[Rfam]
RNA sequence: UAAUAGCAAUAGCCUAAGUUUUUUACACGGGGAAACCAAAUUUUGGGGUGAAUCAUAUUUUUAUGUAGGUUAUGCCUUUUCCGAACCCGUCAGCUAACCCCGUCGGCAAAAGGAGGAAUAAAA
Numbered sequence: 001u002a003a004u005a006g007c008a009a010u011a012g013c014c015u016a017a018g019u020u021u022u023u024u025a026c027a028c029g030g031g032g033a034a035a036c037c038a039a040a041u042u043u044u045g046g047g048g049u050g051a052a053u054c055a056u057a058u059u060u061u062u063a064u065g066u067a068g069g070u071u072a073u074g075c076c077u078u079u080u081c082c083g084a085a086c087c088c089g090u091c092a093g094c095u096a097a098c099c100c101c102g103u104c105g106g107c108a109a110a111a112g113g114a115g116g117a118a119u120a121a122a123a
Stems, first nucleotide, its partner, number of pairs: 012107003018026002027103006037045002046088003054065004068082002